Small nucleolar RNA snoR77: a 125-nucleotide RNA from Genlisea aurea. The source organism's lineage runs through Eukaryota, Embryophyta, eudicotyledons, Lamiales and Genlisea. Rfam links the family to the GO terms nucleolus and RNA processing. It scores 79 bits against the family's covariance model.
[Rfam]
RNA sequence: AGGCAACUCCCUUGCGCUCAUUUUGUUUAGCGAAGGCGGGUGUUAAUCUGCUCGUAUAUAGAUGCUUGAGCUCUUCAGACUUGCUGAUAUCCCCGUGAAGCUUGUCUAGUAAGCUCAAGAACAUA
Numbered sequence: 001a002g003g004c005a006a007c008u009c010c011c012u013u014g015c016g017c018u019c020a021u022u023u024u025g026u027u028u029a030g031c032g033a034a035g036g037c038g039g040g041u042g043u044u045a046a047u048c049u050g051c052u053c054g055u056a057u058a059u060a061g062a063u064g065c066u067u068g069a070g071c072u073c074u075u076c077a078g079a080c081u082u083g084c085u086g087a088u089a090u091c092c093c094c095g096u097g098a099a100g101c102u103u104g105u106c107u108a109g110u111a112a113g114c115u116c117a118a119g120a121a122c123a124u125a
Stems, first nucleotide, its partner, number of pairs: 002044004007040002010036004015032003065119003070114003077107004083101003